[Rfam]
RNA sequence: GCACUUACCUGGACGGGUCUAUGAGCGAUCAUGAAGGUCCAUGGCCUAGGUUAGUGGCCUCCAUUGCACUUUGGAGGGGAGCUUGCCUAAGAUAUCUCCAAGUGGGAUAGUCUACGUCAUAAUUUGUUACUGAGGGGGUACGCGUUCGCGCGGCCCCUG
Numbered sequence: 001g002c003a004c005u006u007a008c009c010u011g012g013a014c015g016g017g018u019c020u021a022u023g024a025g026c027g028a029u030c031a032u033g034a035a036g037g038u039c040c041a042u043g044g045c046c047u048a049g050g051u052u053a054g055u056g057g058c059c060u061c062c063a064u065u066g067c068a069c070u071u072u073g074g075a076g077g078g079g080a081g082c083u084u085g086c087c088u089a090a091g092a093u094a095u096c097u098c099c100a101a102g103u104g105g106g107a108u109a110g111u112c113u114a115c116g117u118c119a120u121a122a123u124u125u126g127u128u129a130c131u132g133a134g135g136g137g138g139u140a141c142g143c144g145u146u147c148g149c150g151c152g153g154c155c156c157c158u159g
Base pairs, nucleotide, nucleotide: 012118013117014116015115016046017045018044019043022041023040025038026037048088049087050086052085054082055081058078059077060076061074062073090113091112092111093109094108095107097105098104134158135157136156137155138154141152142151143150144149
This 159-nucleotide RNA from Kingdonia uniflora belongs to the Rfam family "U1 spliceosomal RNA". A search with the family's covariance model found it, with a score of 120 bits. It is annotated as a spliceosomal small nuclear RNA. The organism belongs to Kingdonia, within Eukaryota. Rfam's curators write: U1 is a small nuclear RNA (snRNA) component of the spliceosome (involved in pre-mRNA splicing). Its 5' end forms complementary base pairs with the 5' splice junction, thus defining the 5' donor site of an intron. There are significant differences in sequence and secondary structure between metazoan and yeast U1 snRNAs, the latter being much longer (568 nucleotides as compared to 164 nucleotides in human). Nevertheless, secondary structure predictions suggest that all U1 snRNAs share a 'common core' consisting of helices I, II, the proximal region of III, and IV. This family does not contain the larger yeast sequences.